[Rfam]
Potassium channel RNA editing signal: a 113-nucleotide RNA sequence from Argiope bruennichi. The base pairs follow the family's consensus structure, which is taken from published work. The family has 85 seed sequences and 14,095 matches in Rfam 15.1. About the family: This family represents a group of sequences related to the human potassium channel Kv1.1 hairpin element which directs the efficient modification of an adenosine to inosine by an adenosine deaminase acting on RNA (ADAR). The ADAR modification causes an isoleucine/valine recoding event which lies in the ion-conducting pore of the potassium channel. The family's RNA type in Rfam is cis-regulatory element. The source organism's lineage runs through Eukaryota, Eumetazoa, Bilateria, Ecdysozoa and Argiope. The match comes from Rfam's covariance-model search (79 bits).
RNA sequence: GCAGGUACGGAGAUAUGGUGCCAGACACCCCUACGGGCAAGAUCGUGGGUGGUGUCUGCUCCUUGAGUGGAGUGCUGGUGAUCGCUCUGCCGGUCCCAGUCAUCGUCUCCAAC
Numbered sequence: 001g002c003a004g005g006u007a008c009g010g011a012g013a014u015a016u017g018g019u020g021c022c023a024g025a026c027a028c029c030c031c032u033a034c035g036g037g038c039a040a041g042a043u044c045g046u047g048g049g050u051g052g053u054g055u056c057u058g059c060u061c062c063u064u065g066a067g068u069g070g071a072g073u074g075c076u077g078g079u080g081a082u083c084g085c086u087c088u089g090c091c092g093g094u095c096c097c098a099g100u101c102a103u104c105g106u107c108u109c110c111a112a113c
Stems, first nucleotide, its partner, number of pairs: 001113001004110002007106004012101003017096002020094002036076004048062002